The family of this 149-nucleotide RNA from Yinghuangia soli is "c-di-AMP riboswitch aptamer (ydaO/yuaA leader)".
The pairing is the family consensus, mapped onto this sequence.
NCBI's taxonomy places the organism under Bacteria, Bacillati, Actinomycetes, Kitasatosporales, Yinghuangia.
Its family is annotated with cyclic-di-AMP binding and regulation of gene expression in the Gene Ontology.
A search with the family's covariance model found it, with a score of 58 bits.
[Rfam]
RNA sequence: CCGCCCCCACGGCCGCGGUUCCGGACCGGAGCCGGGGACCCAGGUCCUUCGAGGCGAAUCGCGAACCGGGGCAGGUGCCCGGGGAGCGUAGGGCGUCUUCUUCCGCCCGAGCCUGUCAGCUAACCCGGUAGGCGGCCGAGGAAGGAGUG
Numbered sequence: 001c002c003g004c005c006c007c008c009a010c011g012g013c014c015g016c017g018g019u020u021c022c023g024g025a026c027c028g029g030a031g032c033c034g035g036g037g038a039c040c041c042a043g044g045u046c047c048u049u050c051g052a053g054g055c056g057a058a059u060c061g062c063g064a065a066c067c068g069g070g071g072c073a074g075g076u077g078c079c080c081g082g083g084g085a086g087c088g089u090a091g092g093g094c095g096u097c098u099u100c101u102u103c104c105g106c107c108c109g110a111g112c113c114u115g116u117c118a119g120c121u122a123a124c125c126c127g128g129u130a131g132g133c134g135g136c137c138g139a140g141g142a143a144g145g146a147g148u149g
Stems, first nucleotide, its partner, number of pairs: 001132002007029002031129006041051001052114003060088003091108004